[Rfam]
A member of the RNA family "TPP riboswitch aptamer (THI element)" from Aurantimonas aggregata, 104 nucleotides long. Taxonomically the source falls in Aurantimonas (Bacteria, Pseudomonadota, Alphaproteobacteria, Aurantimonadaceae). It scores 72 bits against the family's covariance model.

RNA sequence: AGGGCAUCCGAGGGGUGCACUGGGUAGUGCUGAGACGGCCGUAUGGCCGAACCCUUGAACCUGAUCCGGGUCAUGCCGGCGUAGGAACGGGAUCUUGGGCACGU
Numbered sequence: 001a002g003g004g005c006a007u008c009c010g011a012g013g014g015g016u017g018c019a020c021u022g023g024g025u026a027g028u029g030c031u032g033a034g035a036c037g038g039c040c041g042u043a044u045g046g047c048c049g050a051a052c053c054c055u056u057g058a059a060c061c062u063g064a065u066c067c068g069g070g071u072c073a074u075g076c077c078g079g080c081g082u083a084g085g086a087a088c089g090g091g092a093u094c095u096u097g098g099g100c101a102c103g104u
Stems, first nucleotide, its partner, number of pairs: 007091004011055004016049001017030005037048004060085004066079004